The family of this 80-nucleotide RNA from Probosciger aterrimus is "Small nucleolar RNA SNORD111". The family's consensus secondary structure was predicted with RNAalifold. For this family Rfam cites "Purified box C/D snoRNPs are able to reproduce site-specific 2'-O-methylation of target RNA in vitro" (Galardi et al., Mol Cell Biol, 2002). Its family is annotated with RNA processing and nucleolus in the Gene Ontology. Lineage of the source: Eukaryota > Metazoa > Deuterostomia > Australaves > Probosciger. It is annotated as a C/D-box small nucleolar RNA. The match comes from Rfam's covariance-model search (54 bits).
RNA sequence: UAGCCUGAAGUGAUGAGCUUGGUUCAUGUCUCUUCUCUGAAAUUUAUGCUGGAGAUACUGCGAAAACUCUGAUCAGGCAA
Numbered sequence: 001u002a003g004c005c006u007g008a009a010g011u012g013a014u015g016a017g018c019u020u021g022g023u024u025c026a027u028g029u030c031u032c033u034u035c036u037c038u039g040a041a042a043u044u045u046a047u048g049c050u051g052g053a054g055a056u057a058c059u060g061c062g063a064a065a066a067c068u069c070u071g072a073u074c075a076g077g078c079a080a
Stems, first nucleotide, its partner, number of pairs: 001080001003078003